[Rfam]
RNA sequence: UCCAAGUCCUGGGGCGAUUGUCGGCUUGGUCGCUGUCUUUACCCGAGGCACAGUUGCACUUCAGUGACUAGACCGAACACUCGUAUCCUAGGACUUACG
Dot-bracket structure: ..........((((.(..((((((..(((((.((............................)).)))))..))).)))....).))))..........
The family of this 99-nucleotide sequence from Culex quinquefasciatus is "mir-286 microRNA precursor family". Taxonomically the source falls in Culex pipiens complex (Eukaryota, Arthropoda, Insecta, Aparaglossata). A reference for the family is Li et al. (2009), "Direct sequencing and expression analysis of a large number of miRNAs in Aedes aegypti and a multispecies survey of novel mosquito miRNAs", BMC Genomics. Gene Ontology terms of the family: miRNA-mediated post-transcriptional gene silencing and RISC complex.